[Rfam]
RNA sequence: GGUCGACCGCGUGACUGGCGACAUCGGAUGGAUCACCAUCGGGGAGCGCGGCCGAUGCGUGCCGCUCGCCUGGGCCCCCUCU
Numbered sequence: 001g002g003u004c005g006a007c008c009g010c011g012u013g014a015c016u017g018g019c020g021a022c023a024u025c026g027g028a029u030g031g032a033u034c035a036c037c038a039u040c041g042g043g044g045a046g047c048g049c050g051g052c053c054g055a056u057g058c059g060u061g062c063c064g065c066u067c068g069c070c071u072g073g074g075c076c077c078c079c080u081c082u
Base pairs, nucleotide, nucleotide: 003055004054005053007051008050009049010048011047012046015043016042017070018069019068020067021066028039029038030037031036059077061075062074063073

A member of the RNA family "ZMP/ZTP riboswitch aptamer (pfl RNA motif)" from Siculibacillus lacustris, 82 nucleotides long. Pairs were carried over by alignment from the consensus structure, which is taken from published work.